Rfam assigns this 46-nucleotide sequence from Lentisphaera araneosa to the family "Acido-Lenti-1 RNA".
Lineage of the source: Bacteria > Pseudomonadati > Lentisphaeraceae > Lentisphaera > Lentisphaera araneosa.
A search with the family's covariance model found it, with a score of 47 bits.

[Rfam]
RNA sequence: CAUGGGAUUCACAUCCCAUGCUAAAAUAUUCCAUGGUUUCACCAUG
Numbered sequence: 001c002a003u004g005g006g007a008u009u010c011a012c013a014u015c016c017c018a019u020g021c022u023a024a025a026a027u028a029u030u031c032c033a034u035g036g037u038u039u040c041a042c043c044a045u046g
Stems, first nucleotide, its partner, number of pairs: 001020008033045005